[Rfam]
RNA sequence: GCCACUCUGAAAAGCGAUCUUCGAUCCGCCGACGGUGAAAGCCCACCAACCCGACUUCUGCUCGGGAACGAGGGCGAAACUCUCAGGCCCGAUGACAGAGGGGGAGUU
Numbered sequence: 001g002c003c004a005c006u007c008u009g010a011a012a013a014g015c016g017a018u019c020u021u022c023g024a025u026c027c028g029c030c031g032a033c034g035g036u037g038a039a040a041g042c043c044c045a046c047c048a049a050c051c052c053g054a055c056u057u058c059u060g061c062u063c064g065g066g067a068a069c070g071a072g073g074g075c076g077a078a079a080c081u082c083u084c085a086g087g088c089c090c091g092a093u094g095a096c097a098g099a100g101g102g103g104g105a106g107u108u
Stems, first nucleotide, its partner, number of pairs: 002103002005100005016026004028088003031084002035082001037080001041075004
Glycine riboswitch aptamer: a 108-nucleotide RNA sequence from Microbacterium aerolatum. The match comes from Rfam's covariance-model search (44 bits).